The family of this 77-nucleotide RNA sequence from Roseovarius azorensis is "L2-Alphaproteobacteria ribosomal protein leader". The literature on the family includes a 2020 paper in BMC Microbiol by Eckert and Weinberg, "Discovery of 20 novel ribosomal leader candidates in bacteria and archaea". By type it is a cis-regulatory leader. The source organism's lineage runs through Bacteria, Pseudomonadota, Alphaproteobacteria, Rhodobacterales and Roseovarius.
[Rfam]
RNA sequence: GGUCACCCAUGAUGGGGGGCUACAACAUAGGCGGGGCCUGGUGAUGGUCCGCGUCAAUAGCAAACGGAAGACAGAAA
Numbered sequence: 001g002g003u004c005a006c007c008c009a010u011g012a013u014g015g016g017g018g019g020c021u022a023c024a025a026c027a028u029a030g031g032c033g034g035g036g037c038c039u040g041g042u043g044a045u046g047g048u049c050c051g052c053g054u055c056a057a058u059a060g061c062a063a064a065c066g067g068a069a070g071a072c073a074g075a076a077a
Stems, first nucleotide, its partner, number of pairs: 001021004006017003030055004035050002